[Rfam]
RNA sequence: AACUGUUUGCCAACACUCUGGUGCCAAAUCAUCAUUGGAAAUAUAAUUUUCCUUUGAUGCCAUAUUUGGUUCCUAUUUUGGUGCAAACUAGAAUGAUUAGCUUACUACUCACCAUUGUAUACCAACAUUUUGAUGGUUACAAUAGGUCCAUUUCAUUAGCUAACAU
Numbered sequence: 001a002a003c004u005g006u007u008u009g010c011c012a013a014c015a016c017u018c019u020g021g022u023g024c025c026a027a028a029u030c031a032u033c034a035u036u037g038g039a040a041a042u043a044u045a046a047u048u049u050u051c052c053u054u055u056g057a058u059g060c061c062a063u064a065u066u067u068g069g070u071u072c073c074u075a076u077u078u079u080g081g082u083g084c085a086a087a088c089u090a091g092a093a094u095g096a097u098u099a100g101c102u103u104a105c106u107a108c109u110c111a112c113c114a115u116u117g118u119a120u121a122c123c124a125a126c127a128u129u130u131u132g133a134u135g136g137u138u139a140c141a142a143u144a145g146g147u148c149c150a151u152u153u154c155a156u157u158a159g160c161u162a163a164c165a166u
Stems, first nucleotide, its partner, number of pairs: 007086003020073002023070002026067004031058004037052001099161004112146002114143002117140003121137003
RNA: Small nucleolar RNA snR80
Organism: Candida maltosa